[Rfam]
RNA sequence: GAGCGCCGUCACUUACAACGGAUCGUCCGGCACGUUCCUGCCGGUGAGGAGAUAACG
Numbered sequence: 001g002a003g004c005g006c007c008g009u010c011a012c013u014u015a016c017a018a019c020g021g022a023u024c025g026u027c028c029g030g031c032a033c034g035u036u037c038c039u040g041c042c043g044g045u046g047a048g049g050a051g052a053u054a055a056c057g
Stems, first nucleotide, its partner, number of pairs: 009050002012048004027044006

Description:
Shown here is a 57-nucleotide RNA from Marmoricola sp. Leaf446, a member of the family "msiK RNA". The base pairs follow the family's consensus structure, which is taken from published work. The family's RNA type in Rfam is cis-regulatory element. The family has 120 seed sequences and 1,374 matches in Rfam 15.1.